[Rfam]
RNA: glmS glucosamine-6-phosphate activated ribozyme aptamer
Organism: Novibacillus thermophilus
RNA sequence: UUAAAUUUUGAAGCGCCUGAACUGCCAUGGACGUUAAAGUGGCAGUUGACGAGGAGGGGGACAUUCGAGUCAUUCGGCGGGUACCCCCCGGCUUGACCGGAAGUCGAAGUUCGCGGACAAACCGGUAAGGCGACUUACCGAACAAAACCGCCAACAUCCGGCAAC
Number, nucleotide and partner (000 for none) at each position: 001u000002u000003a000004a000005a000006u000007u000008u000009u000010g000011a000012a000013g000014c000015g000016c000017c000018u000019g000020a047021a046022c045023u044024g043025c042026c041027a040028u000029g000030g000031a000032c000033g000034u000035u000036a000037a000038a000039g000040u027041g026042g025043c024044a023045g022046u021047u020048g000049a000050c000051g000052a000053g000054g000055a000056g088057g087058g086059g085060g084061a000062c000063a000064u000065u077066c076067g075068a074069g000070u000071c000072a000073u000074u068075c067076g066077g065078c000079g000080g000081g000082u000083a000084c060085c059086c058087c057088c056089c106090g105091g104092c103093u102094u101095g000096a000097c000098c000099g000100g000101a094102a093103g092104u091105c090106g089107a000108a000109g155110u154111u153112c000113g151114c150115g149116g000117a000118c000119a000120a000121a000122c000123c140124g139125g138126u137127a136128a135129g134130g000131c000132g000133a000134c129135u128136u127137a126138c125139c124140g123141a000142a000143c000144a000145a000146a000147a000148c000149c115150g114151c113152c000153a111154a110155c109156a000157u000158c000159c000160g000161g000162c000163a000164a000165c000